[Rfam]
RNA sequence: GGGCCGGCUUUAGCUCAGCGGUUACUUCGACAAUGCUUCUUAUGGUGGAAACAUAACCACUCUGCGUGGUUCGAGACCUGCGGGCGCUCUCCGGCCUUUUU
Numbered sequence: 001g002g003g004c005c006g007g008c009u010u011u012a013g014c015u016c017a018g019c020g021g022u023u024a025c026u027u028c029g030a031c032a033a034u035g036c037u038u039c040u041u042a043u044g045g046u047g048g049a050a051a052c053a054u055a056a057c058c059a060c061u062c063u064g065c066g067u068g069g070u071u072c073g074a075g076a077c078c079u080g081c082g083g084g085c086g087c088u089c090u091c092c093g094g095c096c097u098u099u100u101u
Stems, first nucleotide, its partner, number of pairs: 002096006013085004018081004026075005